[Rfam]
RNA sequence: UCAGUGGUUUAGGUAGUUUCAUGUUGUCGAGCUUGCAUUUCUACCUCUGCAACAGGAAACUGUCUAAAUUGCCAC
Number, nucleotide and partner (000 for none) at each position: 001u000002c000003a000004g072005u071006g070007g069008u068009u067010u066011a065012g064013g063014u062015a061016g060017u059018u058019u057020c000021a000022u054023g053024u052025u051026g050027u049028c000029g047030a046031g045032c000033u000034u000035g000036c000037a000038u000039u000040u000041c000042u000043a000044c000045c031046u030047c029048u000049g027050c026051a025052a024053c023054a022055g000056g000057a019058a018059a017060c016061u015062g014063u013064c012065u011066a010067a009068a008069u007070u006071g005072c004073c000074a000075c000